[Rfam]
RNA: Small nucleolar RNA Z122
RNA sequence: CAUGGGAAAUGAUGCCAAGAUUCAAACAUUUGGUCAGAGGCGCCAGCUCUGCUGAAUAGUGUUUUUUGCACGUCAGUCUGAUCCCGUC
Numbered sequence: 001c002a003u004g005g006g007a008a009a010u011g012a013u014g015c016c017a018a019g020a021u022u023c024a025a026a027c028a029u030u031u032g033g034u035c036a037g038a039g040g041c042g043c044c045a046g047c048u049c050u051g052c053u054g055a056a057u058a059g060u061g062u063u064u065u066u067u068g069c070a071c072g073u074c075a076g077u078c079u080g081a082u083c084c085c086g087u088c
Stems, first nucleotide, its partner, number of pairs: 002087006